[Rfam]
RNA: Mammalian CPEB3 ribozyme
RNA sequence: AGGUAAUAAGGCCAGGCCAUAGUAGAAGUGCUCGUAGCAUGGCCUGUCAGAGUCCAACAAAUCUGAAAAUUCUACU
Dot-bracket structure: ..............[[[[..((((((((((.......)))]]]]...((((.(......).))))....)))))))